Shown here is a 143-nucleotide RNA sequence from Hungatella hathewayi, a member of the family "Ribosomal protein L10 leader". The family's consensus secondary structure was predicted with CMfinder. For this family Rfam cites "Diverse mechanisms for regulating ribosomal protein synthesis in Escherichia coli" (Zengel and Lindahl, Prog Nucleic Acid Res Mol Biol, 1994). Rfam classes the family as a cis-regulatory leader.

[Rfam]
RNA sequence: UACGCAAAGUAUUGACUGCCGAAGACAGCAGGUGCCGCAAGGCAUAAGGUGUAAACGCCUGCCGAGGAACGUACAAGUAUCGUUUUAACGAAUGAUCUGUAGACCUCUCUGUCCUUGUGGCAGAGAGGUUUUUGUUUUCCCGG
Numbered sequence: 001u002a003c004g005c006a007a008a009g010u011a012u013u014g015a016c017u018g019c020c021g022a023a024g025a026c027a028g029c030a031g032g033u034g035c036c037g038c039a040a041g042g043c044a045u046a047a048g049g050u051g052u053a054a055a056c057g058c059c060u061g062c063c064g065a066g067g068a069a070c071g072u073a074c075a076a077g078u079a080u081c082g083u084u085u086u087a088a089c090g091a092a093u094g095a096u097c098u099g100u101a102g103a104c105c106u107c108u109c110u111g112u113c114c115u116u117g118u119g120g121c122a123g124a125g126a127g128g129u130u131u132u133u134g135u136u137u138u139c140c141c142g143g
Stems, first nucleotide, its partner, number of pairs: 028062006034043003104128010